Shown here is a 305-nucleotide sequence from Apium graveolens, a member of the family "Plant signal recognition particle RNA".
The source organism's lineage runs through Eukaryota, Euphyllophyta, Spermatophyta, Apioideae and Apium.
Rfam classes the family as a non-coding RNA gene.
The family is grouped with related families in Rfam's "SRP clan".
RNA sequence: GCUUGGUCUUGUAGCGCAGGCCUGUAACCCAAGUGGGAGCUAUAAGUUGGUUGAAGGUUGAAUUGUUCCAGAAGGUUGGGCCUGUUUGGGGUUAUUCACUGGCUUGCCCAUUCCAAGUAGGGAGCAGGGUCAUGGGCCUUAGGCGGAAGCCUGGAGUUCCUGGCCCCUAAAGAGGAGGGUACUGCGCUAGGCUGGCUUCACAGAGCAGCGAACACUUCCCUCUCCUGUCCGUGGAAGGAUAACAGGCCAGUUCUCCACUUGUCCAUCAAACACUUGAUGGGGCAGUCAACCAUACAACCAUCUUU
Number, nucleotide and partner (000 for none) at each position: 001g040002c039003u038004u000005g022006g021007u020008c019009u018010u000011g000012u000013a000014g000015c000016g000017c000018a009019g008020g007021c006022c005023u000024g000025u000026a000027a000028c037029c036030c035031a000032a000033g000034u000035g030036g029037g028038a003039g002040c001041u000042a000043u000044a304045a303046g302047u000048u300049g299050g298051u297052u296053g295054a000055a293056g000057g291058u289059u288060g287061a000062a286063u285064u284065g283066u282067u000068c280069c279070a278071g000072a000073a275074g274075g273076u272077u000078g264079g263080g262081c261082c000083u000084g258085u257086u000087u000088g000089g255090g254091g253092u000093u000094a251095u000096u000097c000098a000099c250100u249101g248102g247103c246104u245105u244106g243107c000108c238109c237110a000111u236112u235113c234114c233115a232116a000117g229118u000119a000120g226121g225122g224123a223124g222125c000126a000127g166128g165129g164130u163131c162132a161133u000134g159135g158136g157137c156138c000139u154140u153141a152142g151143g150144c149145g000146g000147a000148a000149g144150c143151c142152u141153g140154g139155a000156g137157u136158u135159c134160c000161u132162g131163g130164c129165c128166c127167c172168u000169a000170a000171a000172g167173a000174g219175g218176a217177g216178g215179g000180u000181a000182c000183u212184g000185c210186g209187c208188u000189a000190g000191g000192c203193u202194g201195g000196c000197u000198u000199c000200a000201c194202a193203g192204a000205g000206c000207a000208g187209c186210g185211a000212a183213c000214a000215c178216u177217u176218c175219c174220c000221u000222c124223u123224c122225c121226u120227g000228u000229c117230c000231g000232u115233g114234g113235a112236a111237g109238g108239a000240u000241a000242a000243c106244a105245g104246g103247c102248c101249a100250g099251u094252u000253c091254u090255c089256c000257a085258c084259u000260u000261g081262u080263c079264c078265a000266u000267c000268a000269a000270a000271c000272a076273c075274u074275u073276g000277a000278u070279g069280g068281g000282g066283c065284a064285g063286u062287c060288a059289a058290c000291c057292a000293u055294a000295c053296a052297a051298c050299c049300a048301u000302c046303u045304u044305u000